[Rfam]
RNA: Trypanosomatid snoRNA TB8Cs2H1
Organism: Leishmania donovani
RNA sequence: GCAGUUCGCAUCGUCGUCGCAAAAGCAGCGCAGCGGUCGUGAUGGUGGGUGGUGGAGGAAGA
Dot-bracket structure: .(..(((((....(((((((.(..............).)))))))......))))).)....